Notes
This 68-nucleotide sequence belongs to the Rfam family "int-alpA RNA". Pairs were carried over by alignment from the consensus structure, which is taken from published work. The family's RNA type in Rfam is small RNA.
RNA sequence: GGCACGCCUAGCCCGACGGGGCGAACACCGGCAAACCUUCACCGGCUGGCGUGCGGAUUUACUGAGGG
Numbered sequence: 001g002g003c004a005c006g007c008c009u010a011g012c013c014c015g016a017c018g019g020g021g022c023g024a025a026c027a028c029c030g031g032c033a034a035a036c037c038u039u040c041a042c043c044g045g046c047u048g049g050c051g052u053g054c055g056g057a058u059u060u061a062c063u064g065a066g067g068g
Base pairs, nucleotide, nucleotide: 002054003053004052005051006050007049008048011022012021013020014019028045029044030043031042036068037067038066039065040064041063